The record is a 47-nucleotide RNA from Oceanobacillus profundus, which matches "PreQ1 (pre queuosine) riboswitch aptamer" in Rfam.
Lineage of the source: Bacteria > Bacillati > Bacilli > Caryophanales > Oceanobacillus.
The family has 43 seed sequences and 873 matches in Rfam 15.1.
On this family, see Schroeder et al., Nucleic Acids Res 2023: "A riboswitch separated from its ribosome-binding site still regulates translation".
A search with the family's covariance model found it, with a score of 46 bits.
Rfam describes the family as follows. This family is a bacterial riboswitch that binds to the metabolite preQ1, an intermediate in the biosynthesis of the modified nucleoside queuosine from GTP. One example of this riboswitch is located in the leader of the Bacillus subtilis ykvJKLM (queCDEF) operon which encodes four genes necessary for queuosine production. PreQ1 binding to the riboswitch aptamer is thought to induce premature transcription termination within the leader to down-regulate expression of these genes.
Its family is annotated with queuosine biosynthetic process in the Gene Ontology.

[Rfam]
RNA sequence: GCGAAAGAGGUUCUUAGCUUUAACCCUCUAUAAAAAACUAAGGAAAG
Numbered sequence: 001g002c003g004a005a006a007g008a009g010g011u012u013c014u015u016a017g018c019u020u021u022a023a024c025c026c027u028c029u030a031u032a033a034a035a036a037a038c039u040a041a042g043g044a045a046a047g
Stems, first nucleotide, its partner, number of pairs: 006029005015040002